The family of this 263-nucleotide RNA sequence from Bucco capensis is "Small Cajal body specific RNA 6". The family's RNA type in Rfam is small Cajal body RNA. Rfam's curators write: U88 is small Cajal body specific RNA (scaRNA). scaRNAs are a novel class of small nuclear RNAs which localise to the Cajal bodies. U88 is found associated with both fibrillarin and Gar1p and co-localises with coilin in Cajal bodies. The organism belongs to Bucco, within Eukaryota. Pairs were carried over by alignment from the consensus structure, which is taken from published work. Its family is annotated with nucleolus and RNA processing in the Gene Ontology. For this family Rfam cites "Cajal body-specific small nuclear RNAs: a novel class of 2'-O-methylation and pseudouridylation guide RNAs" (Darzacq et al., EMBO J, 2002).

RNA sequence: AGUCUGUGAUGAAUAGUAAAAGGUCUGAUUAACUCAAGACUUGCACUUCCAUGACCUUUUCUCCCAGCAGUUUCUCACCAGUCACAGCACAGUAAUGAUGUGGCUGGUAGAGUGUUUGCUGACAUCUAGUGAUGUGUUCCGUUCAUGUUAACCGGAAGCAUUGGAUACAUGACUGGGAUCAGCAUCCAACAGUCUUACUUGAAGGAGUUUGUGGUCUUGGAUUGUUGUAAGUGGCCAUAUGAUCUGACUUCUCUGCUGAGACU
Numbered sequence: 001a002g003u004c005u006g007u008g009a010u011g012a013a014u015a016g017u018a019a020a021a022g023g024u025c026u027g028a029u030u031a032a033c034u035c036a037a038g039a040c041u042u043g044c045a046c047u048u049c050c051a052u053g054a055c056c057u058u059u060u061c062u063c064c065c066a067g068c069a070g071u072u073u074c075u076c077a078c079c080a081g082u083c084a085c086a087g088c089a090c091a092g093u094a095a096u097g098a099u100g101u102g103g104c105u106g107g108u109a110g111a112g113u114g115u116u117u118g119c120u121g122a123c124a125u126c127u128a129g130u131g132a133u134g135u136g137u138u139c140c141g142u143u144c145a146u147g148u149u150a151a152c153c154g155g156a157a158g159c160a161u162u163g164g165a166u167a168c169a170u171g172a173c174u175g176g177g178a179u180c181a182g183c184a185u186c187c188a189a190c191a192g193u194c195u196u197a198c199u200u201g202a203a204g205g206a207g208u209u210u211g212u213g214g215u216c217u218u219g220g221a222u223u224g225u226u227g228u229a230a231g232u233g234g235c236c237a238u239a240u241g242a243u244c245u246g247a248c249u250u251c252u253c254u255g256c257u258g259a260g261a262c263u
Base pairs, nucleotide, nucleotide: 001263002262003261004260037245038244039243041241048221049220050219051218053216054215061207062206063205064204065121066120067119068118069117070116078107079106080105081104082103083102084101085100086099129187131186132185133184134183135182144171145170146169147168149167150166152164153163154162